The record is a 142-nucleotide sequence from Sciurus vulgaris, which matches "Small nucleolar RNA SNORA4" in Rfam. The organism belongs to Sciurus, within Eukaryota. Clan: SNORA4 clan. Pairs were carried over by alignment from the consensus structure, which was predicted with PFOLD. Rfam describes the family as follows. ACA4 is a member of the H/ACA class of snoRNA that guide the sites of modification of uridines to pseudouridines.

RNA sequence: GUGCCAACAGUUAAUAUUUUCGGGAAGGUUUUUUUAAAUAGCCUUUACCAAAUUGGGCUGUUUGGGAGAAGAAAUAAAAGACCACACUCCACAGUGGGCUAUACCACUUAGUAUAGUUCAUUACUAUUUUGUGGCCUACAUU
Numbered sequence: 001g002u003g004c005c006a007a008c009a010g011u012u013a014a015u016a017u018u019u020u021c022g023g024g025a026a027g028g029u030u031u032u033u034u035u036a037a038a039u040a041g042c043c044u045u046u047a048c049c050a051a052a053u054u055g056g057g058c059u060g061u062u063u064g065g066g067a068g069a070a071g072a073a074a075u076a077a078a079a080g081a082c083c084a085c086a087c088u089c090c091a092c093a094g095u096g097g098g099c100u101a102u103a104c105c106a107c108u109u110a111g112u113a114u115a116g117u118u119c120a121u122u123a124c125u126a127u128u129u130u131g132u133g134g135c136c137u138a139c140a141u142u
Base pairs, nucleotide, nucleotide: 004065005064006063007062012060013059015057017055023049024048026046027043028042029041030040079137080136082134083133084132085131086130093122094121095120096119097118098117099116100115101114102113103112104111